[Rfam]
RNA sequence: AUCUUUGCGCAGUGGCAGUAUCGUAGCCUAUGAAGUUUUUCUGAGGCGUGAUUAUUGCUAGUUGAAAACUUUAACCAAUACCCCGCCAAGAUGAUUAUUUUAUAGUCAGCUUGUGCAAUUUUUGAUGGUCUCUAAAUAGA
Numbered sequence: 001a002u003c004u005u006u007g008c009g010c011a012g013u014g015g016c017a018g019u020a021u022c023g024u025a026g027c028c029u030a031u032g033a034a035g036u037u038u039u040u041c042u043g044a045g046g047c048g049u050g051a052u053u054a055u056u057g058c059u060a061g062u063u064g065a066a067a068a069c070u071u072u073a074a075c076c077a078a079u080a081c082c083c084c085g086c087c088a089a090g091a092u093g094a095u096u097a098u099u100u101u102a103u104a105g106u107c108a109g110c111u112u113g114u115g116c117a118a119u120u121u122u123u124g125a126u127g128g129u130c131u132c133u134a135a136a137u138a139g140a
Base pairs, nucleotide, nucleotide: 020052021051022050023049024048026047027046028045034042035041085116086115088112089111090110092108093107094106095105096104097103129140130139131138

Shown here is a 140-nucleotide sequence from Polypterus senegalus, a member of the family "U4 spliceosomal RNA". Pairs were carried over by alignment from the consensus structure, which is taken from published work. About the family: U4 small nuclear RNA (U4 snRNA) is a component of the major U2-dependent spliceosome. The family is grouped with related families in Rfam's "U4 clan". It scores 115 bits against the family's covariance model. A reference for the family is Zwieb (1997), "The uRNA database", Nucleic Acids Res. Rfam classes the family as a spliceosomal small nuclear RNA. The source organism's lineage runs through Eukaryota, Craniata, Polypteriformes, Polypteridae and Polypterus.